Rfam assigns this 77-nucleotide RNA sequence to the family "c-di-GMP-I-GGC riboswitch aptamer". The base pairs follow the family's consensus structure, which is taken from published work. Its family is annotated with cyclic-di-GMP binding in the Gene Ontology. Rfam 15.1 lists 1,298 matches to the family in 717 species.
RNA sequence: UGCGACAAAGGCAACCCCGCCGCGAGGCGGGUGAGCGCAAAGCCACGGGCCUCAAAGAGGCAGCCGGGUUACCGAAC
Numbered sequence: 001u002g003c004g005a006c007a008a009a010g011g012c013a014a015c016c017c018c019g020c021c022g023c024g025a026g027g028c029g030g031g032u033g034a035g036c037g038c039a040a041a042g043c044c045a046c047g048g049g050c051c052u053c054a055a056a057g058a059g060g061c062a063g064c065c066g067g068g069u070u071a072c073c074g075a076a077c
Stems, first nucleotide, its partner, number of pairs: 003074002011036002016031006041070004046066003049061003